[Rfam]
RNA sequence: GGACCCUUUAAAUCAGUCCAGAGAGGCUGGGAAGGACAAUUUUGUGUGCAUGUUUGUAAUAUGCAUACCUGUACCCUCCCUGUCUGCUGACUGGGAGGGUUUUUCUA
Numbered sequence: 001g002g003a004c005c006c007u008u009u010a011a012a013u014c015a016g017u018c019c020a021g022a023g024a025g026g027c028u029g030g031g032a033a034g035g036a037c038a039a040u041u042u043u044g045u046g047u048g049c050a051u052g053u054u055u056g057u058a059a060u061a062u063g064c065a066u067a068c069c070u071g072u073a074c075c076c077u078c079c080c081u082g083u084c085u086g087c088u089g090a091c092u093g094g095g096a097g098g099g100u101u102u103u104u105c106u107a
Stems, first nucleotide, its partner, number of pairs: 005035005013030006044068009071102001073100008082091003

PyrR binding site: a 107-nucleotide RNA from Jeotgalibacillus sp. S-D1. It is annotated as a cis-regulatory element. Rfam's curators write: This family represents the PyrR binding site and terminator structure. For this family Rfam cites "Molecular recognition of pyr mRNA by the Bacillus subtilis attenuation regulatory protein PyrR" (Bonner et al., Nucleic Acids Res, 2001).